RNA: c-di-AMP riboswitch aptamer (ydaO/yuaA leader)
RNA sequence: UCGAGAACCCAGCCGAAUCUUCGACGUCGCAACCGUCGGAGAGCGGGGGAACCAAAGAGUCCGGCAGGACUCCGGGGCGAAUCGUCGUAGUCCCCACGACGUAGCGCUGCUCUUUCUGCGCGAGCCCGACAGCUAACCCCGCAGGCGCCCGAAAGAGAAGGG
Numbered sequence: 001u002c003g004a005g006a007a008c009c010c011a012g013c014c015g016a017a018u019c020u021u022c023g024a025c026g027u028c029g030c031a032a033c034c035g036u037c038g039g040a041g042a043g044c045g046g047g048g049g050a051a052c053c054a055a056a057g058a059g060u061c062c063g064g065c066a067g068g069a070c071u072c073c074g075g076g077g078c079g080a081a082u083c084g085u086c087g088u089a090g091u092c093c094c095c096a097c098g099a100c101g102u103a104g105c106g107c108u109g110c111u112c113u114u115u116c117u118g119c120g121c122g123a124g125c126c127c128g129a130c131a132g133c134u135a136a137c138c139c140c141g142c143a144g145g146c147g148c149c150c151g152a153a154a155g156a157g158a159a160g161g162g
Stems, first nucleotide, its partner, number of pairs: 012146003018042009043142006053074001075127003083101004104121004